[Rfam]
RNA sequence: GCGAGGGUAGCCAAGUGGUCAAAGGCGCAGCGUUGAGGGCGCUGUCCCGUAGGGGUUCCGGGGUUCAAAUCCUCGCUCUCGCA
Number, nucleotide and partner (000 for none) at each position: 001g082002c081003g080004a079005g078006g077007g076008u000009a000010g026011c025012c024013a000014a000015g000016u000017g000018g000019u000020c000021a000022a000023a000024g012025g011026c010027g000028c044029a043030g042031c041032g040033u000034u000035g000036a000037g000038g000039g000040c032041g031042c030043u029044g028045u000046c000047c000048c000049g000050u000051a000052g000053g000054g000055g000056u000057u000058c000059c075060g074061g073062g072063g071064u000065u000066c000067a000068a000069a000070u000071c063072c062073u061074c060075g059076c007077u006078c005079u004080c003081g002082c001083a000

tRNA: an 83-nucleotide RNA from Candidatus Nanosalina sp. J07AB43. By type it is a transfer RNA. Transfer RNA (tRNA) molecules are approximately 80 nucleotides in length.